[Rfam]
RNA: LOOT RNA
RNA sequence: GACCUAAACCGUCAGUACUGGUGGCAUGGUCGACGAGUCGCGUAGCGCAUAGACAACCCGUCAUGGGGUCUGCGUUACGCGCCUUGUGGGGAAACCUGCACGAGAGGCUUCGGUCUCU
Numbered sequence: 001g002a003c004c005u006a007a008a009c010c011g012u013c014a015g016u017a018c019u020g021g022u023g024g025c026a027u028g029g030u031c032g033a034c035g036a037g038u039c040g041c042g043u044a045g046c047g048c049a050u051a052g053a054c055a056a057c058c059c060g061u062c063a064u065g066g067g068g069u070c071u072g073c074g075u076u077a078c079g080c081g082c083c084u085u086g087u088g089g090g091g092a093a094a095c096c097u098g099c100a101c102g103a104g105a106g107g108c109u110u111c112g113g114u115c116u117c118u
Stems, first nucleotide, its partner, number of pairs: 001031004009024006039081011052070001055069001057067003083102001085100006103118006